[Rfam]
Background:
The record is a 116-nucleotide RNA sequence from Bagarius yarrelli, which matches "Potassium channel RNA editing signal" in Rfam. This family represents a group of sequences related to the human potassium channel Kv1.1 hairpin element which directs the efficient modification of an adenosine to inosine by an adenosine deaminase acting on RNA (ADAR). The source organism's lineage runs through Eukaryota, Clupeocephala, Siluroidei, Sisorinae and Bagarius.
Nucleotides: 116
Base pairs, nucleotide, nucleotide: 001116002115004113007112009110010109011108013106015104016103017102018101020099021098023096039079040078042076051065052064
Number, partner (000 for none) and nucleotide at each position: 001116g002115u003000u004113g005000c006000a007112g008000a009110u010109a011108u012000g013106g014000u015104g016103a017102c018101a019000u020099g021098g022000u023096u024000c025000c026000u027000c028000a029000c030000a031000c032000c033000a034000u035000c036000g037000c038000c039079g040078g041000c042076a043000a044000a045000a046000u047000c048000u049000u050000u051065g052064g053000c054000u055000c056000c057000a058000u059000c060000u061000g062000c063000u064052c065051u066000u067000u068000g069000a070000g071000u072000g073000g074000c075000g076042u077000c078040c079039u080000g081000g082000u083000g084000a085000u086000c087000g088000c089000a090000c091000u092000u093000c094000c095000u096023g097000u098021u099020c100000c101018u102017g103016u104015c105000a106013u107000a108011g109010u110009g111000u112007c113004c114000a115002a116001c

By type it is a cis-regulatory element.